[Rfam]
RNA sequence: UCUACUCUCAGAUGUAUGUCGCUUUGGAUAAAAGCAUCUGCUAAAUGAAAUAUA
Dot-bracket structure: ............((((....(((((.....)))))...))).)...........
RNA: UnaL2 LINE 3' element
Organism: Acanthochromis polyacanthus